[Rfam]
RNA sequence: GCGGAUGUAGUUUAGUGGUAGAACUUCAGCUUCCCAAGCUGACCGUGCGGGUUCGAUUCCCGUCAUCCGCU
Numbered sequence: 001g002c003g004g005a006u007g008u009a010g011u012u013u014a015g016u017g018g019u020a021g022a023a024c025u026u027c028a029g030c031u032u033c034c035c036a037a038g039c040u041g042a043c044c045g046u047g048c049g050g051g052u053u054c055g056a057u058u059c060c061c062g063u064c065a066u067c068c069g070c071u
Stems, first nucleotide, its partner, number of pairs: 001070007010024004026042005047063005

A member of the RNA family "tRNA" from Butyricicoccus pullicaecorum, 71 nucleotides long. The family's RNA type in Rfam is transfer RNA. NCBI's taxonomy places the organism under Bacteria, Bacillati, Bacillota, Butyricicoccus, Butyricicoccus pullicaecorum.